[Rfam]
RNA sequence: GGACGGAUAAGGCUUUCAUGCCUUAUCCGACAACAACUGCCUGAUGCGACGCUGACGCGUCUUAUCAGGCC
Numbered sequence: 001g002g003a004c005g006g007a008u009a010a011g012g013c014u015u016u017c018a019u020g021c022c023u024u025a026u027c028c029g030a031c032a033a034c035a036a037c038u039g040c041c042u043g044a045u046g047c048g049a050c051g052c053u054g055a056c057g058c059g060u061c062u063u064a065u066c067a068g069g070c071c
Stems, first nucleotide, its partner, number of pairs: 002031001004029005011022003039070008048061005
RNA: Nucleoid-associated noncoding RNA 4 (CssrE)
Organism: Escherichia coli